[Rfam]
RNA: Bacterial large subunit ribosomal RNA, nucleotides 9 to 579
RNA sequence: UACUAAGGGCGCACGGUGGAUGCCUUGGCAGAAACAGGCGAUGAAGGACGUGGCAAGCUGCGAUAAGCUUCGGGGAGCCGCACACAGGCGUUGAUCCGGAGAUUUCCGAAUGGGGAAACCCACCUGGGCAAAACCCAGGUAUGUCCAACUGAAUACAUAGGUUGGAACAAGCGAACGGAGGGAAGUGAACCAUCUCAGUACCUCCAGGAGAAGAAAGAAACCUCGAUUCCGAGAGUAGUGGCGAGCGAAAUCGGAACAGCCCAAACCCGUUGCAUCAAGGUGUAUCGGGGGUUGUAGGGCCUGCAACAGUAGAGUUACCAAUCUGGUUGCUAGCUGAAUCCUCUGGAAAGGGGAUCCAAAGAGCGUGACAGACGCGUAGGCGAAAGCGAUCCAGACUCGAAGCAGGUACCUGAGUAAGGCGGGGCACGAGAAACCCUGCUUGAAUCCACGGGGACCAUCCCGUAAGGCUAAAUACUCGUUUCUGACCGAUAGUGAACCAGUACCGUGAGGGAAAGGCGAAAAGCACCCCAUUGAGGGGAGUGAAAAGUACCUGAAACCGUGUGCCUACAAG
Numbered sequence: 001u002a003c004u005a006a007g008g009g010c011g012c013a014c015g016g017u018g019g020a021u022g023c024c025u026u027g028g029c030a031g032a033a034a035c036a037g038g039c040g041a042u043g044a045a046g047g048a049c050g051u052g053g054c055a056a057g058c059u060g061c062g063a064u065a066a067g068c069u070u071c072g073g074g075g076a077g078c079c080g081c082a083c084a085c086a087g088g089c090g091u092u093g094a095u096c097c098g099g100a101g102a103u104u105u106c107c108g109a110a111u112g113g114g115g116a117a118a119c120c121c122a123c124c125u126g127g128g129c130a131a132a133a134c135c136c137a138g139g140u141a142u143g144u145c146c147a148a149c150u151g152a153a154u155a156c157a158u159a160g161g162u163u164g165g166a167a168c169a170a171g172c173g174a175a176c177g178g179a180g181g182g183a184a185g186u187g188a189a190c191c192a193u194c195u196c197a198g199u200a201c202c203u204c205c206a207g208g209a210g211a212a213g214a215a216a217g218a219a220a221c222c223u224c225g226a227u228u229c230c231g232a233g234a235g236u237a238g239u240g241g242c243g244a245g246c247g248a249a250a251u252c253g254g255a256a257c258a259g260c261c262c263a264a265a266c267c268c269g270u271u272g273c274a275u276c277a278a279g280g281u282g283u284a285u286c287g288g289g290g291g292u293u294g295u296a297g298g299g300c301c302u303g304c305a306a307c308a309g310u311a312g313a314g315u316u317a318c319c320a321a322u323c324u325g326g327u328u329g330c331u332a333g334c335u336g337a338a339u340c341c342u343c344u345g346g347a348a349a350g351g352g353g354a355u356c357c358a359a360a361g362a363g364c365g366u367g368a369c370a371g372a373c374g375c376g377u378a379g380g381c382g383a384a385a386g387c388g389a390u391c392c393a394g395a396c397u398c399g400a401a402g403c404a405g406g407u408a409c410c411u412g413a414g415u416a417a418g419g420c421g422g423g424g425c426a427c428g429a430g431a432a433a434c435c436c437u438g439c440u441u442g443a444a445u446c447c448a449c450g451g452g453g454a455c456c457a458u459c460c461c462g463u464a465a466g467g468c469u470a471a472a473u474a475c476u477c478g479u480u481u482c483u484g485a486c487c488g489a490u491a492g493u494g495a496a497c498c499a500g501u502a503c504c505g506u507g508a509g510g511g512a513a514a515g516g517c518g519a520a521a522a523g524c525a526c527c528c529c530a531u532u533g534a535g536g537g538g539a540g541u542g543a544a545a546a547g548u549a550c551c552u553g554a555a556a557c558c559g560u561g562u563g564c565c566u567a568c569a570a571g
Stems, first nucleotide, its partner, number of pairs: 007566010022551001023516002027487002029484007036476002038172002046107003049062003068101007077089003112121003122140007142169002144166007176207001177205005187194002217224002227472001228255005238246002258469004266289004271284002296411003301405004320397001322395005327389005333381003339354005357361001363375003417441008448463005503510002526538004